[Rfam]
RNA sequence: CGGCGGGACACUCCUCCCCAACGAGGAGCUAAUUACCUGUGAGGGUAUACAUA
Numbered sequence: 001c002g003g004c005g006g007g008a009c010a011c012u013c014c015u016c017c018c019c020a021a022c023g024a025g026g027a028g029c030u031a032a033u034u035a036c037c038u039g040u041g042a043g044g045g046u047a048u049a050c051a052u053a
Base pairs, nucleotide, nucleotide: 011028012027013026014025015024016023034047035046036045037044038043

A member of the RNA family "serC leader" from Rhizobium deserti, 53 nucleotides long. About the family: This family is a putative regulatory RNA structure that is found upstream of the serC-serA operon in some alpha-proteobacteria. The final stem of the structure overlaps the ribosome binding site of the serC reading frame. For this family Rfam cites "Evidence for a second class of S-adenosylmethionine riboswitches and other regulatory RNA motifs in alpha-proteobacteria" (Corbino et al., Genome Biol, 2005). A search with the family's covariance model found it, with a score of 63 bits. The source organism's lineage runs through Bacteria, Pseudomonadati, Alphaproteobacteria, Rhizobiaceae and Rhizobium. Pairs were carried over by alignment from the consensus structure. By type it is a cis-regulatory leader.